[Rfam]
RNA sequence: GUGCCAUUAGUUCAAUUGGAUAGAACAACUGAUUUCUACUCAGUCGGCUGAGGGUUCGAGUCCUUCAUGGCACG
Numbered sequence: 001g002u003g004c005c006a007u008u009a010g011u012u013c014a015a016u017u018g019g020a021u022a023g024a025a026c027a028a029c030u031g032a033u034u035u036c037u038a039c040u041c042a043g044u045c046g047g048c049u050g051a052g053g054g055u056u057c058g059a060g061u062c063c064u065u066c067a068u069g070g071c072a073c074g
Base pairs, nucleotide, nucleotide: 001073002072003071004070005069006068007067010026011025012024013023028044029043030042031041032040050066051065052064053063054062
The record is a 74-nucleotide RNA from Roseofilum reptotaenium, which matches "tRNA" in Rfam.
The source organism's lineage runs through Bacteria, Bacillati, Cyanobacteriota, Roseofilum and Roseofilum reptotaenium.
By type it is a transfer RNA.
The match comes from Rfam's covariance-model search (66 bits).